[Rfam]
The family of this 294-nucleotide sequence from Dinoponera quadriceps is "Nuclear RNase P". The family has 116 seed sequences and 3,848 matches in Rfam 15.1. On this family, see Frank and Pace, Annu Rev Biochem 1998: "Ribonuclease P: unity and diversity in a tRNA processing ribozyme". Rfam describes the family as follows. Ribonuclease P (RNase P) is a ubiquitous endoribonuclease, found in archaea, bacteria and eukarya as well as chloroplasts and mitochondria. Its best characterised activity is the generation of mature 5'-ends of tRNAs by cleaving the 5'-leader elements of precursor-tRNAs. Cellular RNase Ps are ribonucleoproteins. It is annotated as a ribozyme. The family's consensus secondary structure is taken from published work. The organism belongs to Dinoponera, within Eukaryota. The match comes from Rfam's covariance-model search (116 bits).
RNA sequence: GCAGUGUCAAUCUAGCGGAAGGGGCGCACGAACGGGGCACACGUUGUCGUAAUCGCCUCGGGAAGGUCUGAGAUGAGGUCGUUGAACGUUCUAGACGGACGGCACUGUAACGGUGCGUGCUAGAACCAGAAAUAGCUUUGCGUUCUCCAAAAUGCCGGGGACGCUUUCUUCGAAAAGCAGAGGCGACUGGAAACGUAAAGGUGGAAACUCGUAUGGCCCGCUAUUGCAGUACAAUCCGCAAGCCUGGUAGUUUUUCUUACACUGGGAACUCAAUUCAGACUAAUCUGGCGCUGC
Dot-bracket structure: ((((..(((..[[.[[[[..(((((..........((((.....))))......)))))........(((((....((((......(((((.....)))))(((((.....)))))((((.((.............(((..........................................................))).......)).)))))))).................]]]].]]((((((............)))))).......))))).......)))..))))